[Rfam]
RNA sequence: UUCUCAUUGAAUGAUAACUCUCACGUGUCAUGUUUUGAUUGGAUGUCAACUCUAUGAAAGAUGAAAUGCAUUGUUAUUUUUAUUAAUCAAUCAGAACAUGAUGGGGAACCAACAUUG
Numbered sequence: 001u002u003c004u005c006a007u008u009g010a011a012u013g014a015u016a017a018c019u020c021u022c023a024c025g026u027g028u029c030a031u032g033u034u035u036u037g038a039u040u041g042g043a044u045g046u047c048a049a050c051u052c053u054a055u056g057a058a059a060g061a062u063g064a065a066a067u068g069c070a071u072u073g074u075u076a077u078u079u080u081u082a083u084u085a086a087u088c089a090a091u092c093a094g095a096a097c098a099u100g101a102u103g104g105g106g107a108a109c110c111a112a113c114a115u116u117g
Stems, first nucleotide, its partner, number of pairs: 020106003025102002029100003033096004038091003